[Rfam]
RNA sequence: GGGUUUGAAUAAGAGCUCCAUUCGGUCCAAUAAAGGGGGUAGAGGGAAGGAUAGAGCUGCCACAUCAUGGAUUAGGCUAAGCCUUAUUCUUGGAUCCCAGAAUAGUGGGAGAAUAAGGCUUUGGCCAUUGCAUGGUGUGGGAGCAAUUUAUUGUGUUUAUAAUUACAUCUCUACCUUUUCCCUUGACCCACUCAUUGGACUGAAGGGAGCUCCUGCAUGCUUAUGA
Number, nucleotide and partner (000 for none) at each position: 001g000002g000003g000004u000005u000006u000007g000008a000009a000010u000011a000012a000013g212014a211015g210016c209017u208018c207019c206020a000021u000022u000023c202024g201025g200026u199027c198028c197029a196030a000031u000032a000033a000034a000035g000036g189037g000038g000039g000040u000041a000042g000043a000044g000045g000046g000047a000048a000049g000050g000051a000052u000053a000054g000055a000056g000057c143058u142059g000060c140061c139062a138063c000064a000065u000066c134067a133068u132069g131070g000071a000072u000073u000074a000075g000076g000077c000078u000079a000080a000081g000082c000083c000084u000085u000086a000087u000088u000089c000090u000091u000092g000093g000094a000095u000096c000097c000098c000099a000100g000101a000102a000103u000104a000105g000106u000107g000108g000109g000110a000111g000112a000113a000114u000115a000116a000117g000118g000119c000120u000121u000122u000123g000124g000125c000126c000127a000128u000129u000130g000131c069132a068133u067134g066135g000136u000137g000138u062139g061140g060141g000142a058143g057144c000145a000146a000147u000148u000149u000150a000151u000152u000153g000154u000155g000156u000157u000158u000159a000160u000161a000162a000163u000164u000165a000166c000167a000168u000169c000170u000171c000172u000173a000174c000175c000176u000177u000178u000179u000180c000181c000182c000183u000184u000185g000186a000187c000188c000189c036190a000191c000192u000193c000194a000195u000196u029197g028198g027199a026200c025201u024202g023203a000204a000205g000206g019207g018208a017209g016210c015211u014212c013213c000214u000215g000216c000217a000218u000219g000220c000221u000222u000223a000224u000225g000226a000
Annotation: MIR159 microRNA precursor family: a 226-nucleotide RNA sequence from Ananas comosus. The match comes from Rfam's covariance-model search (79 bits). Its family is annotated with miRNA-mediated post-transcriptional gene silencing and RISC complex in the Gene Ontology.